[Rfam]
RNA: Bacterial large subunit ribosomal RNA, nucleotides 2200 to 2785
Organism: Propioniferax innocua
RNA sequence: CGCGCAGCAGGACGGAAAGACCCCGGGACCUUUACUAUAGUUUGGUAUUGGUGAUUGGGAUAACCUGUGUAGGAUAGGUGGGAGACUUUGAAGCAGCCACGCCAGUGGUUGUGGAGUCAAUGUUGAAAUACCACUCUGGUUGUUCUAGUUAUCUAACCUAGGUCCGUAAUCCGGAUCAGGGACAGUUCCUGAUGGGUAGUUUGACUGGGGCGGUCGCCUCCUAAAGAGUAACGGAGGCGCCCAAAGGUUCCCUCAGCCUGGUUGGCAAUCAGGUAUCGAGUGUAAGUGCACAAGGGAGCUUGACUGUGAGAGAGGCAUCUCAAGCAGGGACGAAAGUCGGGACUAGUGAUCUGACGGUGGCAUGUGGAAGCGCCGUCACUCAACGGAUAAAAGGUACCCCGGGGAUAACAGGCUGAUCUUGCCCGAGCGUUCAUAGCGACGGCAUGGUUUGGCACCUCGAUGUCGGCUCGUCGCAUCCUGGGGCUGGAGCCGGUCCCAAGGGUUGGGCUGUUCGCCCAUUAAAGCGGCACGCGAGCUGGGUUCAGAACGUCGUGAGACAGUUCGGUCCCUAUCCGCUGCGCGCGUA
Numbered sequence: 001c002g003c004g005c006a007g008c009a010g011g012a013c014g015g016a017a018a019g020a021c022c023c024c025g026g027g028a029c030c031u032u033u034a035c036u037a038u039a040g041u042u043u044g045g046u047a048u049u050g051g052u053g054a055u056u057g058g059g060a061u062a063a064c065c066u067g068u069g070u071a072g073g074a075u076a077g078g079u080g081g082g083a084g085a086c087u088u089u090g091a092a093g094c095a096g097c098c099a100c101g102c103c104a105g106u107g108g109u110u111g112u113g114g115a116g117u118c119a120a121u122g123u124u125g126a127a128a129u130a131c132c133a134c135u136c137u138g139g140u141u142g143u144u145c146u147a148g149u150u151a152u153c154u155a156a157c158c159u160a161g162g163u164c165c166g167u168a169a170u171c172c173g174g175a176u177c178a179g180g181g182a183c184a185g186u187u188c189c190u191g192a193u194g195g196g197u198a199g200u201u202u203g204a205c206u207g208g209g210g211c212g213g214u215c216g217c218c219u220c221c222u223a224a225a226g227a228g229u230a231a232c233g234g235a236g237g238c239g240c241c242c243a244a245a246g247g248u249u250c251c252c253u254c255a256g257c258c259u260g261g262u263u264g265g266c267a268a269u270c271a272g273g274u275a276u277c278g279a280g281u282g283u284a285a286g287u288g289c290a291c292a293a294g295g296g297a298g299c300u301u302g303a304c305u306g307u308g309a310g311a312g313a314g315g316c317a318u319c320u321c322a323a324g325c326a327g328g329g330a331c332g333a334a335a336g337u338c339g340g341g342a343c344u345a346g347u348g349a350u351c352u353g354a355c356g357g358u359g360g361c362a363u364g365u366g367g368a369a370g371c372g373c374c375g376u377c378a379c380u381c382a383a384c385g386g387a388u389a390a391a392a393g394g395u396a397c398c399c400c401g402g403g404g405a406u407a408a409c410a411g412g413c414u415g416a417u418c419u420u421g422c423c424c425g426a427g428c429g430u431u432c433a434u435a436g437c438g439a440c441g442g443c444a445u446g447g448u449u450u451g452g453c454a455c456c457u458c459g460a461u462g463u464c465g466g467c468u469c470g471u472c473g474c475a476u477c478c479u480g481g482g483g484c485u486g487g488a489g490c491c492g493g494u495c496c497c498a499a500g501g502g503u504u505g506g507g508c509u510g511u512u513c514g515c516c517c518a519u520u521a522a523a524g525c526g527g528c529a530c531g532c533g534a535g536c537u538g539g540g541u542u543c544a545g546a547a548c549g550u551c552g553u554g555a556g557a558c559a560g561u562u563c564g565g566u567c568c569c570u571a572u573c574c575g576c577u578g579c580g581c582g583c584g585u586a
Stems, first nucleotide, its partner, number of pairs: 001582008010574003014569002022403006028395005034200004041192002044189002047186001050153016067136001077135005084118003093112008157180003161177006203215004216238006239384001241341002247299006253279002256274006280289002304327004310321003329338003352378007360371002412453003416450001417447002420444004427437002464539001465537004469531001470528005477502002480497006504518005545563004549558003